Shown here is a 92-nucleotide RNA from Physeter macrocephalus, a member of the family "Small nucleolar RNA SNORD116".

[Rfam]
RNA sequence: GGAUGGAAGAUGACACCCUUGUCUGCAUUCCUUGGAAAAUCUGAAUAAAAUGAGUGAGAACGCUGUACCGUCUCCUCAUCGAAACUGAGUUC
Dot-bracket structure: .((......................(((((.(((...........)))...)))))..................................))

The family's consensus secondary structure was predicted with PFOLD. It is annotated as a C/D-box small nucleolar RNA.